[Rfam]
RNA sequence: CCAGUCGGCUGGAUGGCCGCCGCUUUUGCGGAGGAAAGUCCGGGCUCCAUAGAGACACGGUGCCGGAUAACGUCCGGCGGGGGUGACCCCAGGGAUAGCGCCACAGAAACGAGACCGCCCGCCGGUUCGCCGGCAGGCAAGGGUGAAACGGUGCGGUAAGAGCGCACCGCGUGGCUGGUAACAGUCGCGGCAUGGCAAGCCCCACCGGGAGCAAAACCGAAUAGGGGCGCAGGCGGUCUCGCAAGAGGCCGCAGGGCCGUCUCUGGCCCGCGUCCGGGUAGGUUGCUUGAGACGGUCGGCAACGGCCGUCCCAGAGGAAUGGCCAUCACGCGCGCUUCGCGCGCCAUACCAAACCCGGCUUAUAGGCCGACUGGCAAU
Numbered sequence: 001c002c003a004g005u006c007g008g009c010u011g012g013a014u015g016g017c018c019g020c021c022g023c024u025u026u027u028g029c030g031g032a033g034g035a036a037a038g039u040c041c042g043g044g045c046u047c048c049a050u051a052g053a054g055a056c057a058c059g060g061u062g063c064c065g066g067a068u069a070a071c072g073u074c075c076g077g078c079g080g081g082g083g084u085g086a087c088c089c090c091a092g093g094g095a096u097a098g099c100g101c102c103a104c105a106g107a108a109a110c111g112a113g114a115c116c117g118c119c120c121g122c123c124g125g126u127u128c129g130c131c132g133g134c135a136g137g138c139a140a141g142g143g144u145g146a147a148a149c150g151g152u153g154c155g156g157u158a159a160g161a162g163c164g165c166a167c168c169g170c171g172u173g174g175c176u177g178g179u180a181a182c183a184g185u186c187g188c189g190g191c192a193u194g195g196c197a198a199g200c201c202c203c204a205c206c207g208g209g210a211g212c213a214a215a216a217c218c219g220a221a222u223a224g225g226g227g228c229g230c231a232g233g234c235g236g237u238c239u240c241g242c243a244a245g246a247g248g249c250c251g252c253a254g255g256g257c258c259g260u261c262u263c264u265g266g267c268c269c270g271c272g273u274c275c276g277g278g279u280a281g282g283u284u285g286c287u288u289g290a291g292a293c294g295g296u297c298g299g300c301a302a303c304g305g306c307c308g309u310c311c312c313a314g315a316g317g318a319a320u321g322g323c324c325a326u327c328a329c330g331c332g333c334g335c336u337u338c339g340c341g342c343g344c345c346a347u348a349c350c351a352a353a354c355c356c357g358g359c360u361u362a363u364a365g366g367c368c369g370a371c372u373g374g375c376a377a378u
Stems, first nucleotide, its partner, number of pairs: 001374010011363001012327007020031004036361003040358005045211004054262001058207005063077005078092001079090004093202002098200002100196003115142002117138003121134005150168006169191001170189008215284004225275006254269005291310008